[Rfam]
Shown here is a 67-nucleotide RNA sequence from Candidatus Methylospira mobilis, a member of the family "int-alpA RNA".
RNA sequence: AUCGCGCCUAGUCCGGCCAGACGAAAACGGGAUUCCUUCACCCGCUGGCGCAUUCCAGUCUUGAAGG
Numbered sequence: 001a002u003c004g005c006g007c008c009u010a011g012u013c014c015g016g017c018c019a020g021a022c023g024a025a026a027a028c029g030g031g032a033u034u035c036c037u038u039c040a041c042c043c044g045c046u047g048g049c050g051c052a053u054u055c056c057a058g059u060c061u062u063g064a065a066g067g
Stems, first nucleotide, its partner, number of pairs: 001054001004051005011022003028044004035067006

Overview:
Rfam classes the family as a small RNA. It scores 45 bits against the family's covariance model. Rfam 15.1 lists 577 matches to the family in 491 species. Lineage of the source: Bacteria > Pseudomonadati > Pseudomonadota > Methylococcaceae > Candidatus Methylospira.